[Rfam]
RNA sequence: ACAGACAGUUAAGGGUUAUUGUACAAGCGUGUUCGUUGCGACCCUGCCAGCCCUUUUCAGGGCUGCAAUUCUACA
Numbered sequence: 001a002c003a004g005a006c007a008g009u010u011a012a013g014g015g016u017u018a019u020u021g022u023a024c025a026a027g028c029g030u031g032u033u034c035g036u037u038g039c040g041a042c043c044c045u046g047c048c049a050g051c052c053c054u055u056u057u058c059a060g061g062g063c064u065g066c067a068a069u070u071c072u073a074c075a
Stems, first nucleotide, its partner, number of pairs: 013044005020075004025070002027039003048065007
RNA: Mammalian CPEB3 ribozyme